[Rfam]
RNA sequence: AGGUAUCUGAGUAUAUGGGGAUGAACGGAAUAGAUUCAAUGUUGGCUUUACGAGAAAAGCAAAAGGGGGAACAUUUUCCCCCUUUUCAGAUAACU
Numbered sequence: 001a002g003g004u005a006u007c008u009g010a011g012u013a014u015a016u017g018g019g020g021a022u023g024a025a026c027g028g029a030a031u032a033g034a035u036u037c038a039a040u041g042u043u044g045g046c047u048u049u050a051c052g053a054g055a056a057a058a059g060c061a062a063a064a065g066g067g068g069g070a071a072c073a074u075u076u077u078c079c080c081c082c083u084u085u086u087c088a089g090a091u092a093a094c095u
Stems, first nucleotide, its partner, number of pairs: 008038001010036003016032002061086011

A member of the RNA family "sraA" from Erwinia sorbitola, 95 nucleotides long. A search with the family's covariance model found it, with a score of 68 bits. Rfam classes the family as a small RNA. A reference for the family is Argaman et al. (2001), "Novel small RNA-encoding genes in the intergenic regions of Escherichia coli", Curr Biol. The source organism's lineage runs through Bacteria, Pseudomonadati, Gammaproteobacteria, Erwiniaceae and Erwinia.